RNA sequence: GCUUUUCCUCCUCAGACCAGCUGGCGUUUUAUACAGAGAAGCCUGCAGGGUCUAGCGGGAGGAAAAGA
Numbered sequence: 001g002c003u004u005u006u007c008c009u010c011c012u013c014a015g016a017c018c019a020g021c022u023g024g025c026g027u028u029u030u031a032u033a034c035a036g037a038g039a040a041g042c043c044u045g046c047a048g049g050g051u052c053u054a055g056c057g058g059g060a061g062g063a064a065a066a067g068a
Base pairs, nucleotide, nucleotide: 002067003066004065009059010058011057013055014053015052016051020046023043024042025041026034027033